RNA sequence: UGACGGGGACCCGCACAAGCGGUGGAUGAUGUGGUUUAAUUCGAUGCAACGCGAAAAACCUUACCCACCUUUGACAUGGCAGGAAGUUUCCAGAGAUGGAUUCGUGCUCGAAAGAGAACCUGCACACAGGUGCUGCAUGGCUGUCGUCAGCUCGUGUCGUGAGAUGUUGGGUUAAGUCCCGCAACGAGCGCAACCCUUGUCAUUAGUUGCUACAUUCAGUUGGGCACUCUAAUGAGACUGCCGGUGACAAACCGGAGGAAGGUGGGGAUGACGUCAAGUCCUCAUGGCCCUUAUAGGUGGGGCUACACACGUCAUACAAUGGCUGGUACAGAGGGUUGCCAACCCGCGAGGGGGAGCUAAUCCCAUAAAACCAGUCGUAGUCCGGAUCGCAGUCUGCAACUCGACUGCGUGAAGUCGGAAUCGCUAGUAAUCGCGGAUCAGCAUGCCGCGGUGAAUACGUUCCCGGGUCUUGUACACACCGCCCGUCACACCAUGGGAGCGGGUCUCGCCAGAAGUAGGUAGCCUAACCGCAAGGAGGGCGCUUACCACGGCGGGGUUCGUGACUGGGGUGAAGUCGUAACAAGG
Numbered sequence: 001u002g003a004c005g006g007g008g009a010c011c012c013g014c015a016c017a018a019g020c021g022g023u024g025g026a027u028g029a030u031g032u033g034g035u036u037u038a039a040u041u042c043g044a045u046g047c048a049a050c051g052c053g054a055a056a057a058a059c060c061u062u063a064c065c066c067a068c069c070u071u072u073g074a075c076a077u078g079g080c081a082g083g084a085a086g087u088u089u090c091c092a093g094a095g096a097u098g099g100a101u102u103c104g105u106g107c108u109c110g111a112a113a114g115a116g117a118a119c120c121u122g123c124a125c126a127c128a129g130g131u132g133c134u135g136c137a138u139g140g141c142u143g144u145c146g147u148c149a150g151c152u153c154g155u156g157u158c159g160u161g162a163g164a165u166g167u168u169g170g171g172u173u174a175a176g177u178c179c180c181g182c183a184a185c186g187a188g189c190g191c192a193a194c195c196c197u198u199g200u201c202a203u204u205a206g207u208u209g210c211u212a213c214a215u216u217c218a219g220u221u222g223g224g225c226a227c228u229c230u231a232a233u234g235a236g237a238c239u240g241c242c243g244g245u246g247a248c249a250a251a252c253c254g255g256a257g258g259a260a261g262g263u264g265g266g267g268a269u270g271a272c273g274u275c276a277a278g279u280c281c282u283c284a285u286g287g288c289c290c291u292u293a294u295a296g297g298u299g300g301g302g303c304u305a306c307a308c309a310c311g312u313c314a315u316a317c318a319a320u321g322g323c324u325g326g327u328a329c330a331g332a333g334g335g336u337u338g339c340c341a342a343c344c345c346g347c348g349a350g351g352g353g354g355a356g357c358u359a360a361u362c363c364c365a366u367a368a369a370a371c372c373a374g375u376c377g378u379a380g381u382c383c384g385g386a387u388c389g390c391a392g393u394c395u396g397c398a399a400c401u402c403g404a405c406u407g408c409g410u411g412a413a414g415u416c417g418g419a420a421u422c423g424c425u426a427g428u429a430a431u432c433g434c435g436g437a438u439c440a441g442c443a444u445g446c447c448g449c450g451g452u453g454a455a456u457a458c459g460u461u462c463c464c465g466g467g468u469c470u471u472g473u474a475c476a477c478a479c480c481g482c483c484c485g486u487c488a489c490a491c492c493a494u495g496g497g498a499g500c501g502g503g504u505c506u507c508g509c510c511a512g513a514a515g516u517a518g519g520u521a522g523c524c525u526a527a528c529c530g531c532a533a534g535g536a537g538g539g540c541g542c543u544u545a546c547c548a549c550g551g552c553g554g555g556g557u558u559c560g561u562g563a564c565u566g567g568g569g570u571g572a573a574g575u576c577g578u579a580a581c582a583a584g585g
Stems, first nucleotide, its partner, number of pairs: 001476002003473003007470007015460002019424005024317001026315008034306002040055004064301007077126002079123005086103001089100004105118001107116002129290002132288004138284002140279003143275001145273002150189006156165003168181004195267004200235007210224002213222002238258002241255005321376007333364003338357002343352003383414001388409007430452007479584001481581001484577002489571004494566003499561012515546006522540004528535002
About this RNA:
This 585-nucleotide part of an RNA from Delftia acidovorans belongs to the Rfam family "Bacterial small subunit ribosomal RNA". Lineage of the source: Bacteria > Pseudomonadota > Betaproteobacteria > Delftia > Delftia acidovorans. Pairs were carried over by alignment from the consensus structure, which is taken from published work. The family is grouped with related families in Rfam's "SSU clan".